RNA sequence: GUGAGUAAACGUGCUACCAUGUAAAGCAACUUCAGACCAUAAUAUUUCAAUAUUUCAUAUUAUUCCUUAUUACUAUGGUCUGAAGUUGCUUUACAUGGUAGCACGUUGGUCCUCUAC
Dot-bracket structure: (.(.((.((((((((((((((((((.((.((((((((((((.((..........................)).)))))))))))).)).)))))))))))))))))).)).).)...
The record is a 117-nucleotide RNA sequence from Drosophila persimilis, which matches "mir-2513 microRNA precursor family" in Rfam.
Lineage of the source: Eukaryota > Acalyptratae > Drosophilidae > Drosophilini > Sophophora.